[Rfam]
RNA sequence: GGCACCUUUGAAACCAUCUCCUAGGUUUCUUCGGAAGGACUUCGGUCCGUGUACUUCUAGCACAACGUGCUAGUUUCAGGGUACGGGUGCCCCCCCAUUUUCGUGGGGGCCUCCAAAAGGAG
Numbered sequence: 001g002g003c004a005c006c007u008u009u010g011a012a013a014c015c016a017u018c019u020c021c022u023a024g025g026u027u028u029c030u031u032c033g034g035a036a037g038g039a040c041u042u043c044g045g046u047c048c049g050u051g052u053a054c055u056u057c058u059a060g061c062a063c064a065a066c067g068u069g070c071u072a073g074u075u076u077c078a079g080g081g082u083a084c085g086g087g088u089g090c091c092c093c094c095c096c097a098u099u100u101u102c103g104u105g106g107g108g109g110c111c112u113c114c115a116a117a118a119g120g121a122g
Stems, first nucleotide, its partner, number of pairs: 001091007010029006019122001021120002037048004051084004057073007092109007
RNA: Pseudoknot of tRNA-like structure
Organism: Cucumovirus CMV